[Rfam]
RNA: Z30 small nucleolar RNA
Organism: Cyprinus carpio
RNA sequence: CUGUGCUGAUGAGCGAUUGUGUCUGACCUGGUAUUGCUGUUCCUCCGGGAGUAACUCUGACCAGGGUCUGAGGACAGUAAUCUUCUCUCUGAGCAG
Numbered sequence: 001c002u003g004u005g006c007u008g009a010u011g012a013g014c015g016a017u018u019g020u021g022u023c024u025g026a027c028c029u030g031g032u033a034u035u036g037c038u039g040u041u042c043c044u045c046c047g048g049g050a051g052u053a054a055c056u057c058u059g060a061c062c063a064g065g066g067u068c069u070g071a072g073g074a075c076a077g078u079a080a081u082c083u084u085c086u087c088u089c090u091g092a093g094c095a096g
Stems, first nucleotide, its partner, number of pairs: 003094002036055001038053002